[Rfam]
RNA sequence: CUCACACAGUUUCUUGGCAUUCUGUCCACCUCCACUUCCACUUUAGCCACGUUCGUUCGCGGAGGUGGACAUACUGCCAACAGAGCUGUGUUCG
Number, nucleotide and partner (000 for none) at each position: 001c000002u000003c000004a000005c000006a000007c000008a000009g000010u000011u084012u000013c000014u080015u079016g078017g077018c076019a075020u000021u000022c000023u071024g070025u069026c068027c067028a066029c065030c064031u063032c062033c061034a000035c000036u000037u000038c000039c000040a000041c000042u000043u000044u000045a000046g000047c000048c000049a000050c000051g000052u000053u000054c000055g000056u000057u000058c000059g000060c000061g033062g032063a031064g030065g029066u028067g027068g026069a025070c024071a023072u000073a000074c000075u019076g018077c017078c016079a015080a014081c000082a000083g000084a011085g000086c000087u000088g000089u000090g000091u000092u000093c000094g000
A member of the RNA family "MIR394 microRNA precursor family" from Cajanus cajan, 94 nucleotides long. Gene Ontology terms of the family: RISC complex and miRNA-mediated post-transcriptional gene silencing. The family's consensus secondary structure was predicted with WAR. It scores 77 bits against the family's covariance model. The family has 19 seed sequences and 724 matches in Rfam 15.1. On this family, see Lu et al., Genome Res 2006: "MicroRNAs and other small RNAs enriched in the Arabidopsis RNA-dependent RNA polymerase-2 mutant". The organism belongs to Cajanus, within Eukaryota.